Shown here is a 134-nucleotide RNA from Salinimonas iocasae, a member of the family "RtT RNA". The source organism's lineage runs through Bacteria, Pseudomonadati, Pseudomonadota, Alteromonadaceae and Salinimonas. A search with the family's covariance model found it, with a score of 46 bits.

[Rfam]
RNA sequence: CUCCCUUGAUGAUCGCGCAGGAUUAGAACCAGCGAAGCGGUUCGACAUCCCGAGCAAGGCGAGGGUGAACGUGUUUUAGCACGGCCCGCAGGGUGAGCCUGUGAAACAGGCGAAUCAUCCAGCACGACCCACCA
Numbered sequence: 001c002u003c004c005c006u007u008g009a010u011g012a013u014c015g016c017g018c019a020g021g022a023u024u025a026g027a028a029c030c031a032g033c034g035a036a037g038c039g040g041u042u043c044g045a046c047a048u049c050c051c052g053a054g055c056a057a058g059g060c061g062a063g064g065g066u067g068a069a070c071g072u073g074u075u076u077u078a079g080c081a082c083g084g085c086c087c088g089c090a091g092g093g094u095g096a097g098c099c100u101g102u103g104a105a106a107c108a109g110g111c112g113a114a115u116c117a118u119c120c121a122g123c124a125c126g127a128c129c130c131a132c133c134a
Base pairs, nucleotide, nucleotide: 015125017123018122020120021119023117033095034094041090043088044087051061052060070083071082072081073080074079
From the family's description: This family represents a bacterial cis-regulatory element known as RtT RNA. The exact function of RtT is unknown although it is thought that it may be involved in changing the cellular response in relation to amino acid starvation.
A reference for the family is Bosl and Kersten (1991), "A novel RNA product of the tyrT operon of Escherichia coli", Nucleic Acids Res.